[Rfam]
RNA sequence: AGAUGCAUUACAGGGCGAGUUCUCUAUUGGCAGGUACCUCACUAUACCGUUUAUAGUGUAGCUUCCUGCCAAAGGAGAUUUGCCCAGCAAUACUACU
Numbered sequence: 001a002g003a004u005g006c007a008u009u010a011c012a013g014g015g016c017g018a019g020u021u022c023u024c025u026a027u028u029g030g031c032a033g034g035u036a037c038c039u040c041a042c043u044a045u046a047c048c049g050u051u052u053a054u055a056g057u058g059u060a061g062c063u064u065c066c067u068g069c070c071a072a073a074g075g076a077g078a079u080u081u082g083c084c085c086a087g088c089a090a091u092a093c094u095a096c097u
Stems, first nucleotide, its partner, number of pairs: 005093001007091003011087001013085007022077004028071007036063001
The record is a 97-nucleotide RNA sequence from Arachis hypogaea, which matches "mir-399 microRNA precursor family" in Rfam.
mir-399 was identified in both Arabidopsis thaliana and Oryza sativa computationally and was later experimentally verified. mir-399 is thought to target mRNAs coding for a phosphatase transporter. The mature sequence is excised from the 3' arm of the hairpin.
The family has 13 seed sequences and 2,396 matches in Rfam 15.1.
The family's consensus secondary structure was predicted with PFOLD.
NCBI's taxonomy places the organism under Eukaryota, Magnoliopsida, Fabales, Papilionoideae, Arachis.
Gene Ontology terms of the family: RISC complex and miRNA-mediated post-transcriptional gene silencing.